Rfam assigns this 317-nucleotide sequence from Cuculus canorus to the family "Small Cajal body-specific RNA 7". The family has 18 seed sequences and 570 matches in Rfam 15.1. A search with the family's covariance model found it, with a score of 186 bits. By type it is a small Cajal body RNA. The base pairs follow the family's consensus structure. The organism belongs to Cuculus, within Eukaryota.

[Rfam]
RNA sequence: UGGAAGUGAUGAAAUAGAGAUAAUUGGAUGUCUCUCUGAAUGGAGUGUGUGUGUGAGAUAAAUAGAAUUUAAAGUCAGAUGGGGGUGGGAGAUGGAGAAUGUGUGUGCAUGUGCAUGUGUAGAAAUGGCUUUAAAUGGGGGCACUGAUAAUGCAGUGCUGAUUCCGGAGUGCAUCUGAGGCAUGUUGUUAAGUUCUAGGGUGCCACUUUGCAACAUUGCCAAUGAUUAAAGCCCAAAACAAGCCCACCAGGACAAGCCUAGGCAUCCUAAAUCUCUAACAGGUUCACUAAUGAAAGUGAUCCUGUGAUCUGAUCCAA
Numbered sequence: 001u002g003g004a005a006g007u008g009a010u011g012a013a014a015u016a017g018a019g020a021u022a023a024u025u026g027g028a029u030g031u032c033u034c035u036c037u038g039a040a041u042g043g044a045g046u047g048u049g050u051g052u053g054u055g056a057g058a059u060a061a062a063u064a065g066a067a068u069u070u071a072a073a074g075u076c077a078g079a080u081g082g083g084g085g086u087g088g089g090a091g092a093u094g095g096a097g098a099a100u101g102u103g104u105g106u107g108c109a110u111g112u113g114c115a116u117g118u119g120u121a122g123a124a125a126u127g128g129c130u131u132u133a134a135a136u137g138g139g140g141g142c143a144c145u146g147a148u149a150a151u152g153c154a155g156u157g158c159u160g161a162u163u164c165c166g167g168a169g170u171g172c173a174u175c176u177g178a179g180g181c182a183u184g185u186u187g188u189u190a191a192g193u194u195c196u197a198g199g200g201u202g203c204c205a206c207u208u209u210g211c212a213a214c215a216u217u218g219c220c221a222a223u224g225a226u227u228a229a230a231g232c233c234c235a236a237a238a239c240a241a242g243c244c245c246a247c248c249a250g251g252a253c254a255a256g257c258c259u260a261g262g263c264a265u266c267c268u269a270a271a272u273c274u275c276u277a278a279c280a281g282g283u284u285c286a287c288u289a290a291u292g293a294a295a296g297u298g299a300u301c302c303u304g305u306g307a308u309c310u311g312a313u314c315c316a317a
Stems, first nucleotide, its partner, number of pairs: 001316004183215006190208001192203002195200001